[Rfam]
RNA sequence: CUUCAAGAGAUGUGGCGCCAAGCUCCGACUUGCCGCACGCCAACCCCAUGUUCACGGGUGGUUCGGAUGGGAAGCGGCCCGGCCCCGGACCAGAGACAACCGGACGGGCAAGAGCACCUC
Number, nucleotide and partner (000 for none) at each position: 001c074002u073003u072004c071005a000006a000007g000008a000009g038010a000011u037012g036013u035014g034015g033016c032017g000018c000019c000020a000021a030022g029023c000024u000025c000026c000027g000028a000029c022030u021031u000032g016033c015034c014035g013036c012037a011038c009039g062040c061041c060042a000043a000044c058045c057046c056047c000048a000049u000050g000051u000052u000053c000054a000055c000056g046057g045058g044059u000060g041061g040062u039063u000064c000065g000066g000067a000068u000069g000070g000071g004072a003073a002074g001075c000076g000077g109078c108079c107080c106081g105082g000083c103084c102085c000086c000087g000088g000089a000090c000091c000092a000093g000094a000095g000096a000097c000098a000099a000100c000101c000102g084103g083104a000105c081106g080107g079108g078109c077110a000111a000112g000113a000114g000115c000116a000117c000118c000119u000120c000
RNA: SAM (S-adenosyl methionine) riboswitch aptamer
Organism: Arthrobacter terricola